[Rfam]
RNA sequence: ACCCUUGAUCCCCGGGACGCGCUCCCCUACCUAACGGGUGUCCCCUCGGGGACUAUGGCGAUAAACGCACCUGUAAUAAGCGGCUCGGACCCGGGGGCGGUACCCGGCGGCUCCACCAAGAUCCUCGUUGGGGACAUUUGGGGCCGAAAUAGGAUCGACGAACGUCUAAAGAGGCCAGCUUUCGCUCGGUGAGGUACCACCGUUAUCGGUCCGAAACGUACAGUUGCCAACGACAACCGUGCUCCGGUGGCGAUGGCUGCGUAAGCAGUCGGAUCUACCGAAACUUAAGUCCUUGCGCCUAGCAGUGUAAGGCGGGGUUCGCAGGCACCUGGCAACAGAAGCCUGCACU
Number, nucleotide and partner (000 for none) at each position: 001a000002c000003c000004c000005u000006u000007g000008a000009u000010c000011c000012c000013c000014g000015g000016g000017a000018c000019g000020c000021g000022c000023u000024c000025c000026c000027c000028u000029a000030c000031c000032u000033a000034a000035c000036g000037g000038g000039u000040g053041u052042c051043c050044c049045c000046u000047c000048g000049g044050g043051g042052a041053c040054u000055a000056u000057g186058g185059c184060g183061a182062u000063a000064a000065a000066c000067g179068c178069a000070c174071c173072u172073g000074u000075a000076a000077u000078a000079a000080g000081c164082g163083g000084c000085u161086c160087g159088g000089a000090c000091c107092c106093g105094g104095g103096g000097g000098c000099g000100g000101u000102a000103c095104c094105c093106g092107g091108c146109g145110g144111c143112u142113c141114c140115a000116c000117c000118a000119a000120g000121a000122u000123c000124c000125u000126c000127g000128u000129u000130g000131g000132g000133g000134a000135c000136a000137u000138u000139u000140g114141g113142g112143g111144c110145c109146g108147a000148a000149a000150u000151a000152g000153g000154a000155u000156c000157g000158a000159c087160g086161a085162a000163c082164g081165u000166c000167u000168a000169a000170a000171g000172a072173g071174g070175c000176c000177a000178g068179c067180u000181u000182u061183c060184g059185c058186u057187c202188g201189g200190u199191g000192a000193g212194g211195u000196a210197c209198c208199a190200c189201c188202g187203u000204u000205a000206u000207c000208g198209g197210u196211c194212c193213g000214a000215a000216a000217c000218g000219u000220a000221c000222a000223g000224u000225u000226g000227c000228c000229a000230a000231c000232g000233a000234c000235a000236a000237c000238c000239g000240u000241g000242c000243u000244c000245c000246g000247g000248u000249g000250g000251c000252g000253a000254u000255g000256g000257c000258u000259g000260c000261g000262u000263a000264a000265g000266c000267a000268g000269u000270c000271g000272g000273a000274u000275c000276u000277a000278c000279c000280g000281a000282a000283a000284c000285u000286u000287a000288a000289g000290u000291c000292c000293u000294u000295g000296c000297g000298c000299c000300u000301a000302g000303c000304a000305g000306u000307g000308u000309a000310a000311g000312g000313c000314g000315g330316g329317g328318u327319u000320c000321g346322c345323a344324g343325g342326c341327a318328c317329c316330u315331g000332g000333c000334a000335a000336c000337a000338g000339a000340a000341g326342c325343c324344u323345g322346c321347a000348c000349u000
RNA: Alphaproteobacteria transfer-messenger RNA
Organism: Jannaschia seohaensis